[Rfam]
RNA sequence: UACCCCAUGGAAUGCUCAGGUCCGCCGCAUCUCCUGGGUCCCGUGGGGGGUCGGUCGGCACCGCGCAAUGACGGUUUCCUCGUACUGUCGCGCGAAUGCCGGCCGGCCACUGA
Numbered sequence: 001u002a003c004c005c006c007a008u009g010g011a012a013u014g015c016u017c018a019g020g021u022c023c024g025c026c027g028c029a030u031c032u033c034c035u036g037g038g039u040c041c042c043g044u045g046g047g048g049g050g051u052c053g054g055u056c057g058g059c060a061c062c063g064c065g066c067a068a069u070g071a072c073g074g075u076u077u078c079c080u081c082g083u084a085c086u087g088u089c090g091c092g093c094g095a096a097u098g099c100c101g102g103c104c105g106g107c108c109a110c111u112g113a
Stems, first nucleotide, its partner, number of pairs: 003048008015038006049108011

The family of this 113-nucleotide sequence from Aurantimonas sp. 22II-16-19i is "EcpR1". Gene Ontology terms of the family: negative regulation of cell cycle, mRNA binding and regulation of translation in response to stress. Taxonomically the source falls in Aurantimonas (Bacteria, Pseudomonadota, Hyphomicrobiales, Aurantimonadaceae). By type it is a small RNA.